[Rfam]
RNA sequence: UUAUCAACCCACUCCUAGGUGGGAUGGUCGUUGAAAC
Numbered sequence: 001u002u003a004u005c006a007a008c009c010c011a012c013u014c015c016u017a018g019g020u021g022g023g024a025u026g027g028u029c030g031u032u033g034a035a036a037c
Base pairs, nucleotide, nucleotide: 005033006032007031008030009027010026013023014022015021

Record summary: A member of the RNA family "CRISPR RNA direct repeat element" from Coleofasciculus sp. FACHB-SPT36, 37 nucleotides long. Gene Ontology term of the family: defense response. Rfam 15.1 lists 201 matches to the family in 33 species. The match comes from Rfam's covariance-model search (40 bits).